[Rfam]
RNA sequence: GGCGAUAAACGGCUUCGAAAUAAGCUCUUCGGACCCGGGGGCGGUACCCGGCGCCUCCACCAAAGCCCAAAGGCUCGAUUUGGCCAUUGGUUUUUGGCGGGGGCGAAAUAGGUUCGACGGGGGGUGUAAAGGAUGACCUUUCGCUCGGCAUGGUUCCGCCGUCAUCGGGCCGAUUUUAUAGUUGCCAACGACAACUAUGCUCCGGUGGCCGUUGCCGCGUAA
Numbered sequence: 001g002g003c004g005a006u007a008a009a010c011g012g013c014u015u016c017g018a019a020a021u022a023a024g025c026u027c028u029u030c031g032g033a034c035c036c037g038g039g040g041g042c043g044g045u046a047c048c049c050g051g052c053g054c055c056u057c058c059a060c061c062a063a064a065g066c067c068c069a070a071a072g073g074c075u076c077g078a079u080u081u082g083g084c085c086a087u088u089g090g091u092u093u094u095u096g097g098c099g100g101g102g103g104c105g106a107a108a109u110a111g112g113u114u115c116g117a118c119g120g121g122g123g124g125u126g127u128a129a130a131g132g133a134u135g136a137c138c139u140u141u142c143g144c145u146c147g148g149c150a151u152g153g154u155u156c157c158g159c160c161g162u163c164a165u166c167g168g169g170c171c172g173a174u175u176u177u178a179u180a181g182u183u184g185c186c187a188a189c190g191a192c193a194a195c196u197a198u199g200c201u202c203c204g205g206u207g208g209c210c211g212u213u214g215c216c217g218c219g220u221a222a
Base pairs, nucleotide, nucleotide: 001145002144003143004142005141013135015133016132025124026123027122029120030119031118035051036050037049038048039047052105053104054103055102056101057100058099146161147160148159149158
RNA: permuted transfer-messenger RNA